[Rfam]
RNA sequence: GGUUUAGACUCACUUUAUUUACCUUGAAUGUAAAGGAGUCUAUGCCGAGUGUGACCUGAAUAUCCACGACCGCAUAGAGAAAGUCUAUGCGGUUUUUUGUCGUC
Numbered sequence: 001g002g003u004u005u006a007g008a009c010u011c012a013c014u015u016u017a018u019u020u021a022c023c024u025u026g027a028a029u030g031u032a033a034a035g036g037a038g039u040c041u042a043u044g045c046c047g048a049g050u051g052u053g054a055c056c057u058g059a060a061u062a063u064c065c066a067c068g069a070c071c072g073c074a075u076a077g078a079g080a081a082a083g084u085c086u087a088u089g090c091g092g093u094u095u096u097u098u099g100u101c102g103u104c
Stems, first nucleotide, its partner, number of pairs: 001046003005042007014034004069093010
Shown here is a 104-nucleotide RNA from Aerococcus loyolae, a member of the family "trpB ncRNA motif".
By type it is a cis-regulatory element.